Notes:
A member of the RNA family "gyrA RNA" from Pseudomonas putida, 86 nucleotides long.
RNA sequence: UCGUAAGUCGUCGCACCCUUAUGCGCUGCGGCGGCGAGCUUCGUUCGGCCCUUGAUGGAGCUGCGAAGUUUCACCAGAAAAAGGAA
Numbered sequence: 001u002c003g004u005a006a007g008u009c010g011u012c013g014c015a016c017c018c019u020u021a022u023g024c025g026c027u028g029c030g031g032c033g034g035c036g037a038g039c040u041u042c043g044u045u046c047g048g049c050c051c052u053u054g055a056u057g058g059a060g061c062u063g064c065g066a067a068g069u070u071u072c073a074c075c076a077g078a079a080a081a082a083g084g085a086a
Stems, first nucleotide, its partner, number of pairs: 007035009018023001036071009047062003050058002
Rfam's curators put it in the seed alignment.